[Rfam]
A member of the RNA family "permuted transfer-messenger RNA" from Iodidimonas gelatinilytica, 236 nucleotides long.
The family's consensus secondary structure is taken from published work.
RNA sequence: GGCAGUAAACGGUGCGUGAAAUAGGCAUUAUGGACCCGGGGGCGGUACCCGGCGCCUCCACCAUCAGCGAUUGAAGCCCAUAAAGCAUAUAGGCCGGGGAAGCGACCGCUGCUGAUGGGGGCGAAAUAGGAUCGACAUGUGCUCAAAGACGAUACUUUCUGCUCGGCAUGGUACCACCGUGAUGGGCCAUAUUCACAAAUGCCAAUGAUAACGAGGCAUUUGCUGUUGCAGCGUAA
Numbered sequence: 001g002g003c004a005g006u007a008a009a010c011g012g013u014g015c016g017u018g019a020a021a022u023a024g025g026c027a028u029u030a031u032g033g034a035c036c037c038g039g040g041g042g043c044g045g046u047a048c049c050c051g052g053c054g055c056c057u058c059c060a061c062c063a064u065c066a067g068c069g070a071u072u073g074a075a076g077c078c079c080a081u082a083a084a085g086c087a088u089a090u091a092g093g094c095c096g097g098g099g100a101a102g103c104g105a106c107c108g109c110u111g112c113u114g115a116u117g118g119g120g121g122c123g124a125a126a127u128a129g130g131a132u133c134g135a136c137a138u139g140u141g142c143u144c145a146a147a148g149a150c151g152a153u154a155c156u157u158u159c160u161g162c163u164c165g166g167c168a169u170g171g172u173a174c175c176a177c178c179g180u181g182a183u184g185g186g187c188c189a190u191a192u193u194c195a196c197a198a199a200u201g202c203c204a205a206u207g208a209u210a211a212c213g214a215g216g217c218a219u220u221u222g223c224u225g226u227u228g229c230a231g232c233g234u235a236a
Stems, first nucleotide, its partner, number of pairs: 001163005015151003026141003030138003036052005053123007164179003
Dot-bracket structure: (((((.........(((........(((.(((...(((((.......)))))(((((((.........................................................)))))))............)))))).......))).......)))))(((..........))).........................................................
Taxonomically the source falls in Iodidimonas (Bacteria, Pseudomonadati, Alphaproteobacteria, Iodidimonadales). It is annotated as a non-coding RNA gene. About the family: Bacterial tmRNA, also known as 10Sa RNA or SsrA, is named for its dual tRNA and mRNA-like properties. Its role is to liberate the mRNA from a stalled ribosome. To accomplish this part of the tmRNA is used as a reading frame that ends in a translation stop signal.